[Rfam]
RNA sequence: AAGAUGAAUAUGUGAGAUACUUGUUGUACAGACGGCGCGCACCGUUAUUUAAUGUAUAGCAUGAGCCGAAGGGGCAGGCAGAAACUCUCAGGCAAAAGGAACAUAUUCGGACA
Numbered sequence: 001a002a003g004a005u006g007a008a009u010a011u012g013u014g015a016g017a018u019a020c021u022u023g024u025u026g027u028a029c030a031g032a033c034g035g036c037g038c039g040c041a042c043c044g045u046u047a048u049u050u051a052a053u054g055u056a057u058a059g060c061a062u063g064a065g066c067c068g069a070a071g072g073g074g075c076a077g078g079c080a081g082a083a084a085c086u087c088u089c090a091g092g093c094a095a096a097a098g099g100a101a102c103a104u105a106u107u108c109g110g111a112c113a
Stems, first nucleotide, its partner, number of pairs: 006108008020063001022061009065093003068089002072087003